Shown here is a 65-nucleotide RNA from Psychroserpens damuponensis, a member of the family "S15-Flavobacteria ribosomal protein leader". The sequence is in the family's curated seed alignment.
RNA sequence: UAUAUUUGCCGCUCGAAAGAAGAGCUUUCGUAUACAUAAAAAUCAUUUACAACAAUAUUAGCAUG
Numbered sequence: 001u002a003u004a005u006u007u008g009c010c011g012c013u014c015g016a017a018a019g020a021a022g023a024g025c026u027u028u029c030g031u032a033u034a035c036a037u038a039a040a041a042a043u044c045a046u047u048u049a050c051a052a053c054a055a056u057a058u059u060a061g062c063a064u065g
Base pairs, nucleotide, nucleotide: 014030015029016028017027018026019025
The family is grouped with related families in Rfam's "Ribosomal Protein S15 Leader clan".